Shown here is a 122-nucleotide RNA sequence from Miscanthus lutarioriparius, a member of the family "Small nucleolar RNA Z278".
Gene Ontology terms of the family: nucleolus and RNA processing.
On this family, see Chen et al., Nucleic Acids Res 2003: "The high diversity of snoRNAs in plants: identification and comparative study of 120 snoRNA genes from Oryza sativa".
The family's consensus secondary structure was predicted with PFOLD.
A search with the family's covariance model found it, with a score of 50 bits.
Rfam classes the family as a C/D-box small nucleolar RNA.
[Rfam]
RNA sequence: GCUUAUGGUGAUUUGCCUAAUGUGUGAAGACGUGAGGUGUAGACAGCUCCAAGUCCCUGCUUGCAAGGGAGAACCUACUUGGAGUCCUACAUUCAAAUGAAUUUAUGGGCAUUUUCUGAGGU
Numbered sequence: 001g002c003u004u005a006u007g008g009u010g011a012u013u014u015g016c017c018u019a020a021u022g023u024g025u026g027a028a029g030a031c032g033u034g035a036g037g038u039g040u041a042g043a044c045a046g047c048u049c050c051a052a053g054u055c056c057c058u059g060c061u062u063g064c065a066a067g068g069g070a071g072a073a074c075c076u077a078c079u080u081g082g083a084g085u086c087c088u089a090c091a092u093u094c095a096a097a098u099g100a101a102u103u104u105a106u107g108g109g110c111a112u113u114u115u116c117u118g119a120g121g122u
Base pairs, nucleotide, nucleotide: 001122002121003120055069056068057067058066